A member of the RNA family "FMN riboswitch aptamer (RFN element)" from Hominibacterium faecale, 116 nucleotides long.
The source organism's lineage runs through Bacteria, Bacillati, Clostridia, Anaerovoracaceae and Hominibacterium.
[Rfam]
Nucleotides: 116
Base pairs, nucleotide, nucleotide: 005112006111007110008109009108010107017029018028019027031096032095033086034085035048036047037046038045043084044083051061052060053059066082067081068080069079070078088099089098090097
Number, partner (000 for none) and nucleotide at each position: 001000a002000c003000a004000a005112g006111u007110c008109u009108u010107c011000g012000g013000g014000g015000u016000u017029u018028g019027g020000u021000g022000a023000a024000a025000u026000u027019c028018c029017a030000u031096a032095c033086c034085g035048g036047c037046g038045g039000u040000a041000c042000a043084g044083c045038c046037c047036g048035c049000g050000a051061g052060c053059g054000c055000c056000c057000a058000g059053c060052g061051c062000a063000u064000g065000a066082a067081c068080c069079g070078g071000u072000g073000a074000g075000a076000u077000u078070c079069c080068g081067g082066u083044g084043c085034c086033g087000a088099c089098a090097g091000u092000a093000a094000a095032g096031u097090c098089u099088g100000g101000a102000u103000g104000a105000g106000a107010g108009a109008a110007g111006a112005u113000g114000a115000a116000a